Description
Small Cajal body-specific RNA 7: a 309-nucleotide RNA sequence from Charadrius vociferus. For this family Rfam cites "Cajal body-specific small nuclear RNAs: a novel class of 2'-O-methylation and pseudouridylation guide RNAs" (Darzacq et al., EMBO J, 2002). The source organism's lineage runs through Eukaryota, Tetrapoda, Sauropsida, Charadriidae and Charadrius. It scores 176 bits against the family's covariance model. Rfam 15.1 lists 570 matches to the family in 531 species. By type it is a small Cajal body RNA.
[Rfam]
RNA sequence: UGGAAGUGAUGAAAUAGAGAUAACUGGAUGUCUCUUUGAAUGGAAUGUGUGUGAUAAAUGGAACUUAAACCAAGGGGGGUGGGAGGUGGGGAACGUGUGUGUGUGCAUGUGUAGAAGAGGCUUCAGACGGGGGCACUGAUAAUGCAGUGCUGAUUCCGGAGUGCAUCUGAGGCAUGUUGUUAAGUUUUAGGGUGCCACAUGACAACAUUGCCGAUGAUUAAAGCCCAAAACAAGCCCACCAAGACAAGCCUAGGCAUCCUAAAUCUCUAACAGGUUCACUGAUGAAAGUGAUCCUGUGAUCUGAUCCAA
Numbered sequence: 001u002g003g004a005a006g007u008g009a010u011g012a013a014a015u016a017g018a019g020a021u022a023a024c025u026g027g028a029u030g031u032c033u034c035u036u037u038g039a040a041u042g043g044a045a046u047g048u049g050u051g052u053g054a055u056a057a058a059u060g061g062a063a064c065u066u067a068a069a070c071c072a073a074g075g076g077g078g079g080u081g082g083g084a085g086g087u088g089g090g091g092a093a094c095g096u097g098u099g100u101g102u103g104u105g106c107a108u109g110u111g112u113a114g115a116a117g118a119g120g121c122u123u124c125a126g127a128c129g130g131g132g133g134c135a136c137u138g139a140u141a142a143u144g145c146a147g148u149g150c151u152g153a154u155u156c157c158g159g160a161g162u163g164c165a166u167c168u169g170a171g172g173c174a175u176g177u178u179g180u181u182a183a184g185u186u187u188u189a190g191g192g193u194g195c196c197a198c199a200u201g202a203c204a205a206c207a208u209u210g211c212c213g214a215u216g217a218u219u220a221a222a223g224c225c226c227a228a229a230a231c232a233a234g235c236c237c238a239c240c241a242a243g244a245c246a247a248g249c250c251u252a253g254g255c256a257u258c259c260u261a262a263a264u265c266u267c268u269a270a271c272a273g274g275u276u277c278a279c280u281g282a283u284g285a286a287a288g289u290g291a292u293c294c295u296g297u298g299a300u301c302u303g304a305u306c307c308a309a
Stems, first nucleotide, its partner, number of pairs: 001308004175207008184195002187192001